[Rfam]
Nucleotides: 077
Stems, first nucleotide, its partner, number of pairs: 002038005008032001011029006041074003045070011
Number, partner (000 for none) and nucleotide at each position: 001000a002038g003037u004036c005035a006034u007000u008032g009000u010000u011029g012028c013027u014026a015025u016024u017000c018000c019000u020000g021000u022000u023000u024016a025015a026014u027013a028012g029011u030000g031000a032008c033000u034006g035005u036004g037003a038002u039000g040000a041074g042073c043072g044000g045070u046069g047068c048067g049066g050065g051064c052063g053062u054061g055060u056000u057000g058000g059000c060055g061054c062053a063052c064051g065050u066049u067048c068047g069046c070045a071000u072043c073042g074041c075000g076000u077000u

Shown here is a 77-nucleotide sequence from Leminorella richardii, a member of the family "SymR antitoxin".
The family's consensus secondary structure is taken from published work.
The literature on the family includes a 2007 paper in Mol Microbiol by Kawano et al., "An antisense RNA controls synthesis of an SOS-induced toxin evolved from an antitoxin".
It is annotated as an antitoxin RNA.